[Rfam]
RNA sequence: GUUUCAUCAAGAGGAUCCGAGGGACCUGGCCCUGCGACGAUCCGGCAACCUGCCUGCGCGCCCGCGGGGAAGGUGCCAAUGCCGGGAACGAUGAGGA
Number, nucleotide and partner (000 for none) at each position: 001g000002u096003u095004u094005c093006a092007u091008c090009a000010a000011g000012a000013g043014g042015a041016u040017c039018c000019g000020a000021g032022g031023g030024a000025c000026c085027u084028g083029g082030c023031c022032c021033u000034g000035c000036g000037a000038c000039g017040a016041u015042c014043c013044g077045g076046c075047a074048a000049c073050c072051u069052g000053c067054c066055u000056g000057c000058g000059c000060g000061c000062c000063c000064g000065c000066g054067g053068g000069g051070a000071a000072g050073g049074u047075g046076c045077c044078a000079a000080u000081g089082c029083c028084g027085g026086g000087a000088a000089c081090g008091a007092u006093g005094a004095g003096g002097a000
The family of this 97-nucleotide RNA sequence from Yinghuangia soli is "SAM riboswitch aptamer (S box leader)".
The source organism's lineage runs through Bacteria, Bacillati, Actinomycetota, Streptomycetaceae and Yinghuangia.
A search with the family's covariance model found it, with a score of 62 bits.